[Rfam]
RNA: Alphaproteobacterial sRNA ar35
RNA sequence: AUCGGCAUUGCUGAUUGAGCGCUGGCAUGCAUCUGUCGCUCGCAAGGCCGCAGUCGCUUUCUGCUUUUGACCACGGAUGUACUGGCACUGGUUUGAGAUGCGAUGUGAGGAAGGUCGGUGCGAUUUCGCUCCGGCCUUUUUUGUU
Numbered sequence: 001a002u003c004g005g006c007a008u009u010g011c012u013g014a015u016u017g018a019g020c021g022c023u024g025g026c027a028u029g030c031a032u033c034u035g036u037c038g039c040u041c042g043c044a045a046g047g048c049c050g051c052a053g054u055c056g057c058u059u060u061c062u063g064c065u066u067u068u069g070a071c072c073a074c075g076g077a078u079g080u081a082c083u084g085g086c087a088c089u090g091g092u093u094u095g096a097g098a099u100g101c102g103a104u105g106u107g108a109g110g111a112a113g114g115u116c117g118g119u120g121c122g123a124u125u126u127c128g129c130u131c132c133g134g135c136c137u138u139u140u141u142u143g144u145u
Stems, first nucleotide, its partner, number of pairs: 003050004008045002017041005053104005059098001063092003068087002071085003105144014120129003